[Rfam]
RNA sequence: CCAACGGCCCUCUUUAGGGCCACAAAUAUACACCAAUCCAUUUAUU
Numbered sequence: 001c002c003a004a005c006g007g008c009c010c011u012c013u014u015u016a017g018g019g020c021c022a023c024a025a026a027u028a029u030a031c032a033c034c035a036a037u038c039c040a041u042u043u044a045u046u
Stems, first nucleotide, its partner, number of pairs: 006021006
Dot-bracket structure: .....((((((....)))))).........................
A member of the RNA family "Histone 3' UTR stem-loop" from Caenorhabditis nigoni, 46 nucleotides long. About the family: The mRNAs of metazoan histone genes lack a poly-A tail. 3' end processing occurs at a site between a highly conserved stem-loop (modelled by this family) and a purine rich region around 20 nts downstream (the histone downstream element, or HDE). The stem-loop is bound by a 31 kDa stem-loop binding protein (SLBP - also termed the histone hairpin binding protein, or HBP). Together with U7 snRNA binding of the HDE, SLBP binding nucleate s the formation of the processing complex. Pairs were carried over by alignment from the consensus structure, which is taken from published work. Rfam links the family to the GO term mRNA 3'-end processing by stem-loop binding and cleavage. The match comes from Rfam's covariance-model search (37 bits).